[Rfam]
RNA sequence: CCGUGCUAGACGGGGAGUUAGCGGUUCCUUGCACCCGCAAUCCGCUGAAGCGGGGUGGAAUUCCAGAGGAAGGGCAGCGCUUGUAGAGCAGUCCUGGACAGGCCGUGAUGAGGCUUUGGGCUUGCGCAACAGGACUCUUCGAACUGUGUCAGGUCCUGACGGAAGCAGCACUAAGGAGUACGUCCCGUGUGCCGCAAGGUUGCCGGGGCCGAGCGGCGUGUUUAGGUAACGUCUGGAAGCGUCUGUUCGACUGAUGGUGCACGG
Number, nucleotide and partner (000 for none) at each position: 001c264002c263003g262004u261005g260006c259007u000008a000009g000010a056011c055012g030013g029014g028015g027016a026017g025018u024019u023020a000021g000022c000023g019024g018025u017026u016027c015028c014029u013030u012031g000032c000033a000034c054035c053036c052037g051038c050039a000040a000041u000042c000043c000044g000045c000046u000047g000048a000049a000050g038051c037052g036053g035054g034055g011056u010057g000058g000059a000060a000061u000062u000063c257064c256065a255066g000067a000068g252069g251070a000071a000072g248073g247074g246075c245076a244077g000078c241079g240080c239081u238082u237083g000084u235085a234086g233087a232088g000089c000090a000091g230092u229093c000094c225095u224096g223097g222098a221099c220100a000101g000102g219103c218104c215105g214106u213107g000108a000109u000110g000111a000112g210113g209114c208115u207116u206117u205118g204119g203120g000121c198122u197123u196124g195125c194126g193127c189128a188129a000130c187131a000132g185133g184134a183135c000136u000137c178138u177139u176140c175141g000142a000143a000144c000145u000146g171147u170148g169149u168150c000151a000152g000153g000154u163155c162156c161157u000158g000159a000160c000161g156162g155163a154164a000165g000166c000167a000168g149169c148170a147171c146172u000173a000174a000175g140176g139177a138178g137179u000180a000181c000182g000183u134184c133185c132186c000187g130188u128189g127190u000191g000192c000193c126194g125195c124196a123197a122198g121199g000200u000201u000202g000203c119204c118205g117206g116207g115208g114209c113210c112211g000212a000213g106214c105215g104216g000217c000218g103219u102220g099221u098222u097223u096224a095225g094226g000227u000228a000229a092230c091231g000232u087233c086234u085235g084236g000237a082238a081239g080240c079241g078242u000243c000244u076245g075246u074247u073248c072249g000250a000251c069252u068253g000254a000255u065256g064257g063258u000259g006260c005261a004262c003263g002264g001
Shown here is a 264-nucleotide RNA sequence from Peptococcaceae bacterium CEB3, a member of the family "Bacterial large signal recognition particle RNA". It scores 179 bits against the family's covariance model. The family's consensus secondary structure is taken from published work. Clan: SRP clan. Taxonomically the source falls in Peptococcaceae (Bacteria, Bacillati, Bacillota, Clostridia).